[Rfam]
RNA sequence: UUUGGUUUCUUGCUUUUCCAUUAAAAAGCAAGUGGUGCGGAUGGGACUCUCUCCCGCCUGGUUUCUUGCCUCCAGUUAAAGGGCAAGUGGCGAGCCUGAGU
Numbered sequence: 001u002u003u004g005g006u007u008u009c010u011u012g013c014u015u016u017u018c019c020a021u022u023a024a025a026a027a028g029c030a031a032g033u034g035g036u037g038c039g040g041a042u043g044g045g046a047c048u049c050u051c052u053c054c055c056g057c058c059u060g061g062u063u064u065c066u067u068g069c070c071u072c073c074a075g076u077u078a079a080a081g082g083g084c085a086a087g088u089g090g091c092g093a094g095c096c097u098g099a100g101u
Stems, first nucleotide, its partner, number of pairs: 009032009042056005058075004065087006
Shown here is a 101-nucleotide sequence, a member of the family "wcaG RNA". Rfam's curators put it in the seed alignment.